[Rfam]
RNA sequence: UCGAUUAUUCGCGCCGACAUUGACCCGGCGGGAUAGCUUUCGACUGCAACUAUGUCACGACAACCCGCCCAGGAGGCGGGUUUC
Numbered sequence: 001u002c003g004a005u006u007a008u009u010c011g012c013g014c015c016g017a018c019a020u021u022g023a024c025c026c027g028g029c030g031g032g033a034u035a036g037c038u039u040u041c042g043a044c045u046g047c048a049a050c051u052a053u054g055u056c057a058c059g060a061c062a063a064c065c066c067g068c069c070c071a072g073g074a075g076g077c078g079g080g081u082u083u084c
Base pairs, nucleotide, nucleotide: 012030013029014028015027016026062082063081064080065079066078067077068076069075
Pseudomonas sRNA P9: an 84-nucleotide RNA from Cupriavidus sp. USMAA2-4. Rfam describes the family as follows. This small RNA (sRNA) was computationally identified in the genome of the opportunistic pathogen Pseudomonas aeruginosa and its expression verified by northern blot analysis. P9 appears to be conserved in several Pseudomonas species in addition to Bordetella spp. In both Pseudomonas and Bordetella spp P9 appears to be located upstream of a predicted threonine dehydratase gene. P9 has a predicted Rho independent terminator at the 3' end but the function of P9 is unknown. This sRNA also appears to be present in the Betaproteobacteria (Burkholderia and Ralstonia species). A search with the family's covariance model found it, with a score of 50 bits. The family's consensus secondary structure was predicted with RNAalifold. The literature on the family includes a 2006 paper in Nucleic Acids Res by Livny et al., "Identification of 17 Pseudomonas aeruginosa sRNAs and prediction of sRNA-encoding genes in 10 diverse pathogens using the bioinformatic tool sRNAPredict2". Taxonomically the source falls in Cupriavidus (Bacteria, Pseudomonadati, Pseudomonadota, Burkholderiales). The family's RNA type in Rfam is non-coding RNA gene.